A member of the RNA family "Plastid-psbA-3 3UTR RNA" from Gossypium schwendimanii, 58 nucleotides long.
The match comes from Rfam's covariance-model search (50 bits).
Taxonomically the source falls in Gossypium (Eukaryota, Tracheophyta, Pentapetalae, malvids).
On this family, see Richter et al., Plant Commun 2023: "Retrograde signaling in plants: A critical review focusing on the GUN pathway and beyond".
RNA sequence: AAAUGAGCAAUACCAAUACUCUUGCUAGAACAAAAAAGUGGUUAUUGCUCUUUUAUUU
Number, nucleotide and partner (000 for none) at each position: 001a054002a053003a052004u000005g050006a049007g048008c047009a046010a045011u044012a043013c041014c040015a000016a000017u000018a000019c000020u035021c000022u033023u032024g031025c000026u000027a000028g000029a000030a000031c024032a023033a022034a000035a020036a000037a000038g000039u000040g014041g013042u000043u012044a011045u010046u009047g008048c007049u006050c005051u000052u003053u002054u001055a000056u000057u000058u000